[Rfam]
Description: Rfam assigns this 175-nucleotide RNA from Pseudomonas bharatica to the family "RT-15 RNA". Lineage of the source: Bacteria > Pseudomonadota > Pseudomonadales > Pseudomonadaceae > Pseudomonas bharatica. Pairs were carried over by alignment from the consensus structure, which is taken from published work.
RNA sequence: CCGCGCCCGCUGCUUGAGGGUCAAGGCCCUUCUGCCUGUGCGCUAAAUCUGGUCGUGCCGCUGUCCUGUGGACACCGCCAUGCGCACCACGGAAACCGCCGGCUGAUGCCGAAAGGUCCGGCGCAGUUACCGGGCUGAGCAAUCGUCCCGGCAAUGUAAAUAGCACGACAGGUCG
Numbered sequence: 001c002c003g004c005g006c007c008c009g010c011u012g013c014u015u016g017a018g019g020g021u022c023a024a025g026g027c028c029c030u031u032c033u034g035c036c037u038g039u040g041c042g043c044u045a046a047a048u049c050u051g052g053u054c055g056u057g058c059c060g061c062u063g064u065c066c067u068g069u070g071g072a073c074a075c076c077g078c079c080a081u082g083c084g085c086a087c088c089a090c091g092g093a094a095a096c097c098g099c100c101g102g103c104u105g106a107u108g109c110c111g112a113a114a115g116g117u118c119c120g121g122c123g124c125a126g127u128u129a130c131c132g133g134g135c136u137g138a139g140c141a142a143u144c145g146u147c148c149c150g151g152c153a154a155u156g157u158a159a160a161u162a163g164c165a166c167g168a169c170a171g172g173u174c175g
Base pairs, nucleotide, nucleotide: 004042005041006040012035013034016031017030018029019028020027021026053168054167055166056165057164058163059077060076062074063073064072065071066070081125082124083123084122085121090120091119092118093117096116097115100111101110102109103108127154128153130151131150132149133148134147136145137144138143